[Rfam]
RNA sequence: GUUGCUUCUUUUGGUGAACUCUCCCUUAUUAUUCCAUGGUGGUUGUUCUAGUUUCCGAAGCAUAUAUAAAUUAAUUCGUCUCGAAUAACCGGUUUUAAACAGCGUGGUGUAAUCUUCUCUAAGCUACCCUAUGCUACCUGUCUUCUGGUACAUUC
Numbered sequence: 001g002u003u004g005c006u007u008c009u010u011u012u013g014g015u016g017a018a019c020u021c022u023c024c025c026u027u028a029u030u031a032u033u034c035c036a037u038g039g040u041g042g043u044u045g046u047u048c049u050a051g052u053u054u055c056c057g058a059a060g061c062a063u064a065u066a067u068a069a070a071u072u073a074a075u076u077c078g079u080c081u082c083g084a085a086u087a088a089c090c091g092g093u094u095u096u097a098a099a100c101a102g103c104g105u106g107g108u109g110u111a112a113u114c115u116u117c118u119c120u121a122a123g124c125u126a127c128c129c130u131a132u133g134c135u136a137c138c139u140g141u142c143u144u145c146u147g148g149u150a151c152a153u154u155c
Base pairs, nucleotide, nucleotide: 003062004061005060006059007058008057016048017047018046019045021042022041024039088149089148090147091146092145101135102134103133105131106130107129109127
Description: A member of the RNA family "small nucleolar RNA snoR137" from Glycine max, 155 nucleotides long. It is annotated as an H/ACA-box small nucleolar RNA. Gene Ontology terms of the family: nucleolus and RNA processing. For this family Rfam cites "Mining small RNA sequencing data: a new approach to identify small nucleolar RNAs in Arabidopsis" (Chen and Wu, Nucleic Acids Res, 2009). NCBI's taxonomy places the organism under Eukaryota, Euphyllophyta, fabids, Fabaceae, Glycine subgen. Soja. Pairs were carried over by alignment from the consensus structure, which was predicted with RNAalifold.